This 135-nucleotide sequence from Tetrahymena thermophila belongs to the Rfam family "Tetrahymena snoRNA TtnuHACA9". It is annotated as an H/ACA-box small nucleolar RNA. Rfam links the family to the GO terms RNA processing and nucleolus. Taxonomically the source falls in Tetrahymena thermophila (Eukaryota, Ciliophora, Hymenostomatida, Tetrahymena). The literature on the family includes a 2012 paper in Nucleic Acids Res by Andersen and Nielsen, "Experimental identification and analysis of macronuclear non-coding RNAs from the ciliate Tetrahymena thermophila". The family's consensus secondary structure was predicted with mfold.

RNA sequence: AAGGAUCUAUCGAAGCUUGUACAAUGAUUUUAUCAUUGUAGAAGUCAAAACAAUCCAAAAGAAACCGUCAAAUAGUGAUUCGGGUGGCACUUUUAUUUUCCAUAAAUAAUCGUGUCUAUCGAAUUUCUAACACUU
Numbered sequence: 001a002a003g004g005a006u007c008u009a010u011c012g013a014a015g016c017u018u019g020u021a022c023a024a025u026g027a028u029u030u031u032a033u034c035a036u037u038g039u040a041g042a043a044g045u046c047a048a049a050a051c052a053a054u055c056c057a058a059a060a061g062a063a064a065c066c067g068u069c070a071a072a073u074a075g076u077g078a079u080u081c082g083g084g085u086g087g088c089a090c091u092u093u094u095a096u097u098u099u100c101c102a103u104a105a106a107u108a109a110u111c112g113u114g115u116c117u118a119u120c121g122a123a124u125u126u127c128u129a130a131c132a133c134u135u
Stems, first nucleotide, its partner, number of pairs: 003056004015045003020040009073129003077125007086116005093109006